The record is a 403-nucleotide RNA sequence from Pseudomonas guineae, which matches "Pseudomonas sRNA CrcZ" in Rfam. Taxonomically the source falls in Pseudomonas (Bacteria, Gammaproteobacteria, Pseudomonadales, Pseudomonadaceae).

[Rfam]
RNA sequence: ACAAGAACAAUAACAAGCACGCUCAAACCUAAUAAAAAUAAGACGUACCGACUCCAGCAUAAUAAAAACAACAACGCAGAGGCGCAGCUAACUGAUUCUUUUGGAAAGGAAUUGCCUUUGGGGUUCGCCCCAAAACCAGGCCGAGAACAAUAAAACUGCACCAAGGCAGUGCCAGAACUGGUUAGGUCACUGUGUGAUCAUGGCAGCAUCAGUAUCCAAAGUAAUACGUUUGCUCUUAAUUCCCAACUUGGGAAAGUUUCCAAAAGUCACUGACUGGAUGGAACGGGUAAAUCAACAAAAACAACAAGCCCGCCAUAAUAAUAAAAAAAGAGCACGCACCAAUUUGGGGGGGAGCUUCGGCUCCCCCAGUAGCUUCAACAUCCCCGCCUGCAACAGUCUCCCG
Numbered sequence: 001a002c003a004a005g006a007a008c009a010a011u012a013a014c015a016a017g018c019a020c021g022c023u024c025a026a027a028c029c030u031a032a033u034a035a036a037a038a039u040a041a042g043a044c045g046u047a048c049c050g051a052c053u054c055c056a057g058c059a060u061a062a063u064a065a066a067a068a069c070a071a072c073a074a075c076g077c078a079g080a081g082g083c084g085c086a087g088c089u090a091a092c093u094g095a096u097u098c099u100u101u102u103g104g105a106a107a108g109g110a111a112u113u114g115c116c117u118u119u120g121g122g123g124u125u126c127g128c129c130c131c132a133a134a135a136c137c138a139g140g141c142c143g144a145g146a147a148c149a150a151u152a153a154a155a156c157u158g159c160a161c162c163a164a165g166g167c168a169g170u171g172c173c174a175g176a177a178c179u180g181g182u183u184a185g186g187u188c189a190c191u192g193u194g195u196g197a198u199c200a201u202g203g204c205a206g207c208a209u210c211a212g213u214a215u216c217c218a219a220a221g222u223a224a225u226a227c228g229u230u231u232g233c234u235c236u237u238a239a240u241u242c243c244c245a246a247c248u249u250g251g252g253a254a255a256g257u258u259u260c261c262a263a264a265a266g267u268c269a270c271u272g273a274c275u276g277g278a279u280g281g282a283a284c285g286g287g288u289a290a291a292u293c294a295a296c297a298a299a300a301a302c303a304a305c306a307a308g309c310c311c312g313c314c315a316u317a318a319u320a321a322u323a324a325a326a327a328a329a330g331a332g333c334a335c336g337c338a339c340c341a342a343u344u345u346g347g348g349g350g351g352g353a354g355c356u357u358c359g360g361c362u363c364c365c366c367c368a369g370u371a372g373c374u375u376c377a378a379c380a381u382c383c384c385c386g387c388c389u390g391c392a393a394c395a396g397u398c399u400c401c402c403g
Stems, first nucleotide, its partner, number of pairs: 049084002052081003099221005113214003134183006156169004240254004280384002283381001285311004330375004347370001348367008